[Rfam]
RNA sequence: UACGGGGAACCUGAAAACCGUAUUAAUAGAGUAGGGA
Numbered sequence: 001u002a003c004g005g006g007g008a009a010c011c012u013g014a015a016a017a018c019c020g021u022a023u024u025a026a027u028a029g030a031g032u033a034g035g036g037a
Base pairs, nucleotide, nucleotide: 002021003020004019005018010036011035012034
This 37-nucleotide RNA from Bacteroidetes oral taxon 274 belongs to the Rfam family "DUF805b RNA".
It is one of the family's seed sequences.
Pairs were carried over by alignment from the consensus structure, which is taken from published work.